[Rfam]
RNA sequence: UUACAAUUAAAGGAUAUUUCUUGUAAAUGAAUCAGACCCAGAAAUAUCUUUUAAUUGUUCGGC
Numbered sequence: 001u002u003a004c005a006a007u008u009a010a011a012g013g014a015u016a017u018u019u020c021u022u023g024u025a026a027a028u029g030a031a032u033c034a035g036a037c038c039c040a041g042a043a044a045u046a047u048c049u050u051u052u053a054a055u056u057g058u059u060c061g062g063c
Stems, first nucleotide, its partner, number of pairs: 003058008012049010024035001
RNA: mir-7552 microRNA precursor family